[Rfam]
RNA sequence: GGCUCUCGAAAUUACGUUCACCUCCCCGUGGUGAGAGUCGGGCAACGGCAAUAGCACUUGUCGGCUAAGCAACGUAU
Dot-bracket structure: (((((((............(((.......))))))))))......(((((........)))))..............
Numbered sequence: 001g002g003c004u005c006u007c008g009a010a011a012u013u014a015c016g017u018u019c020a021c022c023u024c025c026c027c028g029u030g031g032u033g034a035g036a037g038u039c040g041g042g043c044a045a046c047g048g049c050a051a052u053a054g055c056a057c058u059u060g061u062c063g064g065c066u067a068a069g070c071a072a073c074g075u076a077u
Stems, first nucleotide, its partner, number of pairs: 001039007020032003046063005